[Rfam]
About this RNA:
The record is a 76-nucleotide RNA from Desulfosporosinus sp. Tol-M, which matches "c-di-GMP-I-GGC riboswitch aptamer" in Rfam. The match comes from Rfam's covariance-model search (63 bits). The literature on the family includes a 2017 paper in Proc Natl Acad Sci U S A by Weinberg et al., "Bioinformatic analysis of riboswitch structures uncovers variant classes with altered ligand specificity".

RNA sequence: ACUGAUGAUGGCAAACCUGUUGAAAAGCAGGGACGCAAAGCUAGAGGGCCUGUAAAAUGGCAGCCAGCUACCAAAG
Numbered sequence: 001a002c003u004g005a006u007g008a009u010g011g012c013a014a015a016c017c018u019g020u021u022g023a024a025a026a027g028c029a030g031g032g033a034c035g036c037a038a039a040g041c042u043a044g045a046g047g048g049c050c051u052g053u054a055a056a057a058u059g060g061c062a063g064c065c066a067g068c069u070a071c072c073a074a075a076g
Base pairs, nucleotide, nucleotide: 003073004072011036012035016031017030018029019028020027021026034063039069040068041067042066046065047064048061049060050059
NCBI's taxonomy places the organism under Bacteria, Bacillati, Bacillota, Desulfitobacteriaceae, Desulfosporosinus.